The record is a 202-nucleotide RNA sequence from Christensenella minuta, which matches "raiA RNA" in Rfam.
RNA sequence: AGGAUCCGCGCCUGUGGUUGAAAGCCGAUGCCAGUCGCAGGCAAAACGGUCCACGUAAGCAGCGCUCCGGCGCGGCGAGCAUAGUGCGGCUAGACGUAAGCCCGCCCGCCCGGCAAAGGGCGAGAGGAGUAAGAGUGGCCUAAACGGCUGCGGGGCUUCCAGGCGGCGGAUGUGGGGGAAAAGACCAGGUCAGGCGGAUCCU
Numbered sequence: 001a002g003g004a005u006c007c008g009c010g011c012c013u014g015u016g017g018u019u020g021a022a023a024g025c026c027g028a029u030g031c032c033a034g035u036c037g038c039a040g041g042c043a044a045a046a047c048g049g050u051c052c053a054c055g056u057a058a059g060c061a062g063c064g065c066u067c068c069g070g071c072g073c074g075g076c077g078a079g080c081a082u083a084g085u086g087c088g089g090c091u092a093g094a095c096g097u098a099a100g101c102c103c104g105c106c107c108g109c110c111c112g113g114c115a116a117a118g119g120g121c122g123a124g125a126g127g128a129g130u131a132a133g134a135g136u137g138g139c140c141u142a143a144a145c146g147g148c149u150g151c152g153g154g155g156c157u158u159c160c161a162g163g164c165g166g167c168g169g170a171u172g173u174g175g176g177g178g179a180a181a182a183g184a185c186c187a188g189g190u191c192a193g194g195c196g197g198a199u200c201c202u
Base pairs, nucleotide, nucleotide: 001202002201003200004199005198006197007196008195009194012193013192014191015187016186017185018184019183028173029172030171031041034090035089036088037087038086039085050084060074062073063072064071082180102166103165104164105163106162107122108121109120110119111118126159127158128157129156135151136150138148139147140146